The family of this 234-nucleotide RNA from Pseudomonas sp. TTU2014-080ASC is "sRNA regulator of biofilms A". Pairs were carried over by alignment from the consensus structure, which was predicted with R-scape. From the family's description: Important for biofilm formation and pathogenicity. Bacterial strain with deleted SrbA had reduced biofilm mass. As the ability to form biofilms can contribute to the ability a pathogen to thrive within the host, the C. elegans hosts infected with the srbA deleted strain displayed significantly lower mortality rate than the wild-type strain. However, the deletion of srbA had no effect on growth or antibiotic resistance in P. aeruginosa. The literature on the family includes a 2017 paper in PLoS One by Taylor et al., "A novel small RNA is important for biofilm formation and pathogenicity in Pseudomonas aeruginosa". It is annotated as a small RNA.
RNA sequence: AUCAGAGGUGCUUAAAAGCCCCUCCGGAUCGCACUCCACUUACCGUACGAGGCGAUCUGCGUUGUGAAGCUCACAAGGCCGUUCAAUGAGAUUGCGACUGGAACGAAGUUGUCCUGAGGGACGGGGAAGCGUUUGACAGCAAAACCGAAGUAGAAACAUCAGGAAGUAUUGCUAGACGGCAACCACGAGCCAGACAGCAGCAGACCACAACGUCUGCACCCUGUAAGCCUAUCU
Dot-bracket structure: ....((((.(((....))).))))...((((...(.(..(....)...).).)))).((.(((.(...(((.....))).((..((((.........................((.........))...))))..))...).))))).........(........)...((((....(((........)))....)))).......(((..(.......).)))..........